[Rfam]
RNA sequence: ACCUAACAGUUACAUAAUGUGACUGACAUUUGCCAAGAUAGGAGAUUCACAUG
Dot-bracket structure: .((((.(((((.........))))).............))))...........